[Rfam]
A member of the RNA family "R2 RNA element" from Agrilus planipennis, 193 nucleotides long. For this family Rfam cites "Secondary structure models of the 3' untranslated regions of diverse R2 RNAs" (Ruschak et al., RNA, 2004). This family represents the 3' UTR region of the R2 retrotransposable element. This family is known to interact with the R2-encoded reverse transcriptase in a reaction known as target primed reverse transcription (TPRT).
RNA sequence: AAAUAAACAAAAAACAAUAGAAUUGUUAUCAGUUGCUAUUAUUAGUAAUUAACAAUUAUUUUGAAAUCCUAGAACGGCCUGAGGUAGAGGGGUUUUAGUCGGUAGGUCCGAGGACUUCUUCCUCGGGAAUCCGACACUACCCAGUCGUACGGACGGCUGGGUAUCUUUUGAAGAUUUCCCCUCUUCCACGAAA
Numbered sequence: 001a002a003a004u005a006a007a008c009a010a011a012a013a014a015c016a017a018u019a020g021a022a023u024u025g026u027u028a029u030c031a032g033u034u035g036c037u038a039u040u041a042u043u044a045g046u047a048a049u050u051a052a053c054a055a056u057u058a059u060u061u062u063g064a065a066a067u068c069c070u071a072g073a074a075c076g077g078c079c080u081g082a083g084g085u086a087g088a089g090g091g092g093u094u095u096u097a098g099u100c101g102g103u104a105g106g107u108c109c110g111a112g113g114a115c116u117u118c119u120u121c122c123u124c125g126g127g128a129a130u131c132c133g134a135c136a137c138u139a140c141c142c143a144g145u146c147g148u149a150c151g152g153a154c155g156g157c158u159g160g161g162u163a164u165c166u167u168u169u170g171a172a173g174a175u176u177u178c179c180c181c182u183c184u185u186c187c188a189c190g191a192a193a
Base pairs, nucleotide, nucleotide: 032053060192061191062190063189083187084186086184087183089180090179091178098135099134100133101132102131107127108126109125110124111123112122113121114120138163139162140161141160142159143158